[Rfam]
RNA sequence: CUCGAGUUGUCUCUCAUGUCUAGACCAUUUGUGAGAAGGGAUUUACUGUUUGCACCAUCCACCUCACCAAUCUCUAAAUCUGCCAUUAGUAUUAUGCUCAUUUAAGAAAAUUAGCAUCUAGAAAAUAGGUACAUAAAGUGCAUGAAUGACUUUUGCAGAUGCUGUACACAUAAUUUUUUUUUAUAGAAUCAGUUCAUGCUGGUUCUCCAAAUCAUAUACAGUUUUGGACAUAUAUUUUUCCCAAGAGAUGUCAAACUUCUAUAUGGAUUGUUAGAAGGUUUUCAUGAUAUCUUAGAAUUUGUAGCUUGCACUACUUAGCUACAUUAGUUCACUUGUUAAAAGUUGGGAAGUGGGGGAGGUGCUGGGUUAUUCCCUUCUCAUCGAUGGUCUAGAUGUGCGAGGUGACUCUCAUAGUGU
Dot-bracket structure: (.(((((((((((.(((((((((((((((.(((((((((((..........(((((.......(...((...(.(...............................................................................................................................................................................................................................................................................).).)))....)))))........))))))))))).))))))))))))))).)))))))))).....).).
The record is a 417-nucleotide sequence from Brassica rapa, which matches "MIR824 microRNA precursor family" in Rfam. A search with the family's covariance model found it, with a score of 194 bits. Lineage of the source: Eukaryota > Embryophyta > Magnoliopsida > malvids > Brassica.